Shown here is an 85-nucleotide sequence from Vigna angularis, a member of the family "Small nucleolar RNA snoR53Y". Rfam 15.1 lists 513 matches to the family in 230 species. The source organism's lineage runs through Eukaryota, Streptophyta, Euphyllophyta, fabids and Vigna angularis. The family is grouped with related families in Rfam's "snoR53 clan". The match comes from Rfam's covariance-model search (64 bits).
RNA sequence: GUUCCCGAUGAUGUUUUAUCUCAUUUUACCAUGCUAAUUCUGAUUAUAGAUGAUUAAUAUUUUCAGUUUAAUUACUGAGGGAACU
Numbered sequence: 001g002u003u004c005c006c007g008a009u010g011a012u013g014u015u016u017u018a019u020c021u022c023a024u025u026u027u028a029c030c031a032u033g034c035u036a037a038u039u040c041u042g043a044u045u046a047u048a049g050a051u052g053a054u055u056a057a058u059a060u061u062u063u064c065a066g067u068u069u070a071a072u073u074a075c076u077g078a079g080g081g082a083a084c085u
Stems, first nucleotide, its partner, number of pairs: 001084005